[Rfam]
RNA sequence: AUUUCUGGAAGAUGGAAGAGCAGUGAACGAUCUUUGAAGAGCUGAAUGCUCAGAGUCAACAGAAACCAGAGCAGCAUCAGUGUCUCCAGAUGAGAAAU
Numbered sequence: 001a002u003u004u005c006u007g008g009a010a011g012a013u014g015g016a017a018g019a020g021c022a023g024u025g026a027a028c029g030a031u032c033u034u035u036g037a038a039g040a041g042c043u044g045a046a047u048g049c050u051c052a053g054a055g056u057c058a059a060c061a062g063a064a065a066c067c068a069g070a071g072c073a074g075c076a077u078c079a080g081u082g083u084c085u086c087c088a089g090a091u092g093a094g095a096a097a098u
Stems, first nucleotide, its partner, number of pairs: 001098006
A member of the RNA family "Small nucleolar RNA sn2991" from Caenorhabditis briggsae, 98 nucleotides long. Rfam links the family to the GO terms nucleolus and RNA processing. On this family, see Higa et al., Biochem Biophys Res Commun 2002: "Location of 2(')-O-methyl nucleotides in 26S rRNA and methylation guide snoRNAs in Caenorhabditis elegans". The family's RNA type in Rfam is C/D-box small nucleolar RNA. Lineage of the source: Eukaryota > Protostomia > Chromadorea > Rhabditomorpha > Caenorhabditis. The sequence is in the family's curated seed alignment.